This 84-nucleotide RNA sequence from Populus trichocarpa belongs to the Rfam family "Small nucleolar RNA Z159/U59".
The match comes from Rfam's covariance-model search (43 bits).
Its family is annotated with nucleolus and RNA processing in the Gene Ontology.
A reference for the family is Chen et al. (2003), "The high diversity of snoRNAs in plants: identification and comparative study of 120 snoRNA genes from Oryza sativa", Nucleic Acids Res.
Its Rfam clan is "SNORD59 clan".
RNA sequence: AUCUCUUAACGAUGAUCACCUUGAAACUUUCGUUCUCCUGAGCAAAUUCAUGCUGAAAAUUGUGGAGACCUGAGCUGAAGGGCU
Dot-bracket structure: ..((((........................................................................))))..